RNA sequence: UAAAAGGGUCGGUUGGCUAAAUAUGCCACACUUGCCCAAUGAAUGGUAAGUGCUGUAUGGCUAUCAAGACAUAUGGCCGGCAGAAUUUGUGGGAACUUAUAGAGUUGGCUCUUUUGGCCGACUCUCCA
Numbered sequence: 001u002a003a004a005a006g007g008g009u010c011g012g013u014u015g016g017c018u019a020a021a022u023a024u025g026c027c028a029c030a031c032u033u034g035c036c037c038a039a040u041g042a043a044u045g046g047u048a049a050g051u052g053c054u055g056u057a058u059g060g061c062u063a064u065c066a067a068g069a070c071a072u073a074u075g076g077c078c079g080g081c082a083g084a085a086u087u088u089g090u091g092g093g094a095a096c097u098u099a100u101a102g103a104g105u106u107g108g109c110u111c112u113u114u115u116g117g118c119c120g121a122c123u124c125u126c127c128a
Stems, first nucleotide, its partner, number of pairs: 008081005014028004029052008038044001053076007101125008110116001
U11 spliceosomal RNA: a 128-nucleotide sequence from Artemisia annua.
The family is grouped with related families in Rfam's "U1 clan".
A search with the family's covariance model found it, with a score of 75 bits.
The source organism's lineage runs through Eukaryota, Streptophyta, Embryophyta, asterids and Artemisia.
Pairs were carried over by alignment from the consensus structure, which is taken from published work.